The record is a 43-nucleotide RNA from Peribacillus cavernae, which matches "Ribosomal protein L19 leader" in Rfam.
Pairs were carried over by alignment from the consensus structure, which was predicted with CMfinder.
By type it is a cis-regulatory leader.
Its family is annotated with regulation of gene expression in the Gene Ontology.
[Rfam]
RNA sequence: ACGAUGUUCCGCUGCAAAGAUUAUCGAUUUGUAAGAGCAUCCG
Numbered sequence: 001a002c003g004a005u006g007u008u009c010c011g012c013u014g015c016a017a018a019g020a021u022u023a024u025c026g027a028u029u030u031g032u033a034a035g036a037g038c039a040u041c042c043g
Stems, first nucleotide, its partner, number of pairs: 003041007013033006